[Rfam]
RNA: Mu-gpT-DE RNA
RNA sequence: CCCUGACAGUUUCGUGGUGAAACUGACACUAGCCGAGACAGGAGAUUCGCAUG
Numbered sequence: 001c002c003c004u005g006a007c008a009g010u011u012u013c014g015u016g017g018u019g020a021a022a023c024u025g026a027c028a029c030u031a032g033c034c035g036a037g038a039c040a041g042g043a044g045a046u047u048c049g050c051a052u053g
Base pairs, nucleotide, nucleotide: 002042003041004040005039007025008024009023010022011021